[Rfam]
RNA sequence: GGUUCAGUUACCCGAGUUUGAGUAAUUUGGGUGUUUCGGUCCAGAGUUUAGGCUAUUGUGGCUUGAAGUAAAAUUUUGGGACGUCCUGCAUGUUUGUAGGGCAAU
Numbered sequence: 001g002g003u004u005c006a007g008u009u010a011c012c013c014g015a016g017u018u019u020g021a022g023u024a025a026u027u028u029g030g031g032u033g034u035u036u037c038g039g040u041c042c043a044g045a046g047u048u049u050a051g052g053c054u055a056u057u058g059u060g061g062c063u064u065g066a067a068g069u070a071a072a073a074u075u076u077u078g079g080g081a082c083g084u085c086c087u088g089c090a091u092g093u094u095u096g097u098a099g100g101g102c103a104a105u
Stems, first nucleotide, its partner, number of pairs: 003031005009025001012022001034068004039062003083102007
Description
The record is a 105-nucleotide RNA from Brugia pahangi, which matches "SL1 RNA" in Rfam. This family represents the SL1 RNA. SL1 is commonly located in the spacer region between 5S-rRNA genes where it is involved in trans-splicing. Trans-splicing is a form of RNA processing. The acquisition of a spliced leader from a SL RNA is a intra-molecular reaction which precisely joins exons derived from separately transcribed RNAs. This mechanism of mRNA maturation has been shown to occur in a number of lower eukaryotes and is commonplace in nematodes. On this family, see Dassanayake et al., Gene 2001: "Trans-spliced leader RNA, 5S-rRNA genes and novel variant orphan spliced-leader of the lymphatic filarial nematode Wuchereria bancrofti, and a sensitive polymerase chain reaction based detection assay". Rfam classes the family as a non-coding RNA gene. NCBI's taxonomy places the organism under Eukaryota, Protostomia, Ecdysozoa, Filarioidea, Brugia. Its Rfam clan is "SL clan". A search with the family's covariance model found it, with a score of 84 bits. The family's consensus secondary structure is taken from published work.